[Rfam]
RNA: Pyrobaculum sRNA 204
RNA sequence: GAGUGCCGCUGGAGUGCCGCCCUAGGCGGCUCUAUGAUAGUCGGCCCCCCGGCCUUA
Numbered sequence: 001g002a003g004u005g006c007c008g009c010u011g012g013a014g015u016g017c018c019g020c021c022c023u024a025g026g027c028g029g030c031u032c033u034a035u036g037a038u039a040g041u042c043g044g045c046c047c048c049c050c051g052g053c054c055u056u057a
Base pairs, nucleotide, nucleotide: 005045006044007043008042010040011038016030017029018028019027020026021025